[Rfam]
RNA sequence: AAACCCUUUUAAAUGUAGUCCCGUGAGGCUGCCAAAGGGUCUGGGUUUCAUAUGCCUUCUUUCGGCAUAUAUUCUAGACUCUUUGUGCAAUCGCAAAGAGUUUUUUUAUU
Number, nucleotide and partner (000 for none) at each position: 001a000002a000003a040004c039005c038006c037007u036008u035009u034010u000011a000012a000013a000014u000015g032016u031017a030018g029019u028020c027021c000022c000023g000024u000025g000026a000027g020028g019029c018030u017031g016032c015033c000034a009035a008036a007037g006038g005039g004040u003041c000042u000043g000044g000045g000046u000047u000048u000049c000050a070051u069052a068053u067054g066055c065056c064057u000058u000059c000060u000061u000062u000063c000064g056065g055066c054067a053068u052069a051070u050071a000072u000073u000074c000075u000076a103077g102078a101079c100080u099081c098082u097083u096084u095085g094086u093087g092088c000089a000090a000091u000092c087093g086094c085095a084096a083097a082098g081099a080100g079101u078102u077103u076104u000105u000106u000107u000108a000109u000110u000

The record is a 110-nucleotide RNA from Bacillus sp. 165, which matches "PyrR binding site" in Rfam.
The match comes from Rfam's covariance-model search (66 bits).
Pairs were carried over by alignment from the consensus structure, which is taken from published work.
From the family's description: This family represents the PyrR binding site and terminator structure. This RNA structure is found upstream of a variety of genes involved in pyrimidine biosynthesis and transport. The alignment also includes a portion of the antiterminator structure.
Lineage of the source: Bacteria > Bacillati > Bacillota > Bacilli > Bacillus.